[Rfam]
RNA sequence: AAAAAAGGUCGGUUGGUUAAAUAUGCCACACUCAUUAGAAUGGCGAGUGCUGUAUGGCUAUCAAGAUAUAUGACUGACAUAAUUUUUGUGAAUCAAUAGGGUUGGCUCGUUAAGUCGACCCUCUUU
Numbered sequence: 001a002a003a004a005a006a007g008g009u010c011g012g013u014u015g016g017u018u019a020a021a022u023a024u025g026c027c028a029c030a031c032u033c034a035u036u037a038g039a040a041u042g043g044c045g046a047g048u049g050c051u052g053u054a055u056g057g058c059u060a061u062c063a064a065g066a067u068a069u070a071u072g073a074c075u076g077a078c079a080u081a082a083u084u085u086u087u088g089u090g091a092a093u094c095a096a097u098a099g100g101g102u103u104g105g106c107u108c109g110u111u112a113a114g115u116c117g118a119c120c121c122u123c124u125u126u
Stems, first nucleotide, its partner, number of pairs: 008078005014028004029049005035043002051072006096124001098122010
This 126-nucleotide sequence belongs to the Rfam family "U11 spliceosomal RNA". Clan: U1 clan. The family has 72 seed sequences and 2,595 matches in Rfam 15.1.